A member of the RNA family "Proteobacterial sRNA sX8" from Tolumonas auensis, 82 nucleotides long. For this family Rfam cites "Genome-wide transcriptome analysis of the plant pathogen Xanthomonas identifies sRNAs with putative virulence functions" (Schmidtke et al., Nucleic Acids Res, 2011). Lineage of the source: Bacteria > Pseudomonadati > Aeromonadales > Tolumonas > Tolumonas auensis. Pairs were carried over by alignment from the consensus structure, which was predicted with CMfinder. The family's RNA type in Rfam is small RNA. The sequence is in the family's curated seed alignment.

RNA sequence: CUUCGUUGAAGCCCUCAGCGAAGAAAAGAGUUGGAAAACAUACGCUUAGCGCGUCAGUGCUAGUCCCGUCUCCCGCUCCAAU
Numbered sequence: 001c002u003u004c005g006u007u008g009a010a011g012c013c014c015u016c017a018g019c020g021a022a023g024a025a026a027a028g029a030g031u032u033g034g035a036a037a038a039c040a041u042a043c044g045c046u047u048a049g050c051g052c053g054u055c056a057g058u059g060c061u062a063g064u065c066c067c068g069u070c071u072c073c074c075g076c077u078c079c080a081a082u
Stems, first nucleotide, its partner, number of pairs: 001023009030077001032075003036071001038069002044064002050059003